[Rfam]
RNA sequence: AGGCCUGAAGAGAGAAGCAGGGUCUGAUCCGCAGCCCUCAUGGCAGCUGUUGAUCAGCCUUUGCCUCUCUUUCUCUCUG
Numbered sequence: 001a002g003g004c005c006u007g008a009a010g011a012g013a014g015a016a017g018c019a020g021g022g023u024c025u026g027a028u029c030c031g032c033a034g035c036c037c038u039c040a041u042g043g044c045a046g047c048u049g050u051u052g053a054u055c056a057g058c059c060u061u062u063g064c065c066u067c068u069c070u071u072u073c074u075c076u077c078u079g
Base pairs, nucleotide, nucleotide: 009072010071011070012069013068014067015066017064018063019062020061022059024057025056026055027054028053029052032049033048034047035046
RNA: mir-574 microRNA precursor family